[Rfam]
RNA: BsrG
RNA sequence: UACAUUAAGUUUGCUCACUCAAGGGAGUCUUGCUCAUCCCCUAUGAAAGGGGGUGGGAAAAUGACUGUUUACGAAUCAUUAAUGAUAAUGAUCAAUUUUGGCGGGUUGAUAUUAAAUACCGUCUUGUUGAUCUUCAAUAUAAUGAUGCUUGUAACGUCAAACCAAAAGAAAAAAUAGACCUCCCUUGAGACUGGAAUCCUGAAGGGUAAGGUCUAUCUAGAACAACACCGAGCAAGCCCUUUGACGGGCAGCUUUUUGUGCAAAUAGCGGCCUGUGGGUGUAAGCGCACCCCAGG
Numbered sequence: 001u002a003c004a005u006u007a008a009g010u011u012u013g014c015u016c017a018c019u020c021a022a023g024g025g026a027g028u029c030u031u032g033c034u035c036a037u038c039c040c041c042u043a044u045g046a047a048a049g050g051g052g053g054u055g056g057g058a059a060a061a062u063g064a065c066u067g068u069u070u071a072c073g074a075a076u077c078a079u080u081a082a083u084g085a086u087a088a089u090g091a092u093c094a095a096u097u098u099u100g101g102c103g104g105g106u107u108g109a110u111a112u113u114a115a116a117u118a119c120c121g122u123c124u125u126g127u128u129g130a131u132c133u134u135c136a137a138u139a140u141a142a143u144g145a146u147g148c149u150u151g152u153a154a155c156g157u158c159a160a161a162c163c164a165a166a167a168g169a170a171a172a173a174a175u176a177g178a179c180c181u182c183c184c185u186u187g188a189g190a191c192u193g194g195a196a197u198c199c200u201g202a203a204g205g206g207u208a209a210g211g212u213c214u215a216u217c218u219a220g221a222a223c224a225a226c227a228c229c230g231a232g233c234a235a236g237c238c239c240u241u242u243g244a245c246g247g248g249c250a251g252c253u254u255u256u257u258g259u260g261c262a263a264a265u266a267g268c269g270g271c272c273u274g275u276g277g278g279u280g281u282a283a284g285c286g287c288a289c290c291c292c293a294g295g
Base pairs, nucleotide, nucleotide: 001260002259003258004257007254008253009252010250011235012234013233014232015231016230018189019188020187021186022185023184024183025182027179028178029177030176034056035055036054038052039051040050041049042048063131065129067127068126076091077090078089100123101122102121103120199220200219201218236249237248238247239246271295272294273293274292276291277290278289279288280287281286